[Rfam]
RNA sequence: UUUUCAGGAUCUUCUGUUAAGAACUGUCACGUCCUGUGACGAACACAGAAGUCAGAACAUCCUGUUCA
Numbered sequence: 001u002u003u004u005c006a007g008g009a010u011c012u013u014c015u016g017u018u019a020a021g022a023a024c025u026g027u028c029a030c031g032u033c034c035u036g037u038g039a040c041g042a043a044c045a046c047a048g049a050a051g052u053c054a055g056a057a058c059a060u061c062c063u064g065u066u067c068a
Base pairs, nucleotide, nucleotide: 011051012050013049014048015047016046017045026040027039028038029037030036055067056066057065058064
RNA: Bacillaceae-1 RNA